[Rfam]
Annotation: This 117-nucleotide RNA from Desulfotomaculum nigrificans belongs to the Rfam family "Molybdenum/Tungsten riboswitch aptamer (Moco RNA motif)". Its family is annotated with molybdenum ion binding, regulation of gene expression and tungstate binding in the Gene Ontology. The family's consensus secondary structure is taken from published work. A search with the family's covariance model found it, with a score of 74 bits.
RNA sequence: UCAAUAGCAUAACUCCGAGCCUGAGUUAUCUAAGGCAAAGCUAUGAUUUUCAGGCCGAUAGGGUUUACCGAGAAAUCGGUAAGCCUCCCGUGCGGAAAGGAGUUAGGUAUUAUCCGG
Numbered sequence: 001u002c003a004a005u006a007g008c009a010u011a012a013c014u015c016c017g018a019g020c021c022u023g024a025g026u027u028a029u030c031u032a033a034g035g036c037a038a039a040g041c042u043a044u045g046a047u048u049u050u051c052a053g054g055c056c057g058a059u060a061g062g063g064u065u066u067a068c069c070g071a072g073a074a075a076u077c078g079g080u081a082a083g084c085c086u087c088c089c090g091u092g093c094g095g096a097a098a099g100g101a102g103u104u105a106g107g108u109a110u111u112a113u114c115c116g117g
Base pairs, nucleotide, nucleotide: 004111011104012103013102014101015100016099019055020054021053022052023051024050025049028047029046030045034042035041036040061086062085063084064083065082066081067080068079069078070077071076087095088094